[Rfam]
RNA sequence: ACCUCAUCCAGAGGGGCAGAGGGAUACGGCCCGAUGAAGCCCCGGCAACCCCUGCGGCAUGUCUCGACGUUGAGGCCGGUCGCGGUAGGUGCCAAAUCCGUCCCGGUGCGCAAGGCCAUGCACCUGGGGAAGAUGAGAG
Number, nucleotide and partner (000 for none) at each position: 001a000002c000003c137004u136005c135006a134007u133008c132009c000010a000011g000012a000013g043014g042015g041016g040017c039018a000019g000020a000021g032022g031023g030024a000025u000026a101027c100028g099029g098030c023031c022032c021033g000034a000035u000036g000037a000038a000039g017040c016041c015042c014043c013044g093045g092046c091047a090048a000049c089050c088051c000052c085053u084054g083055c082056g081057g080058c079059a000060u000061g000062u000063c000064u000065c000066g000067a000068c000069g000070u000071u000072g000073a000074g000075g000076c000077c000078g000079g058080u057081c056082g055083c054084g053085g052086u000087a000088g050089g049090u047091g046092c045093c044094a000095a000096a000097u131098c029099c028100g027101u026102c128103c127104c126105g125106g124107u000108g000109c000110g000111c000112a000113a000114g000115g000116c000117c000118a000119u000120g000121c000122a000123c000124c106125u105126g104127g103128g102129g000130a000131a097132g008133a007134u006135g005136a004137g003138a000139g000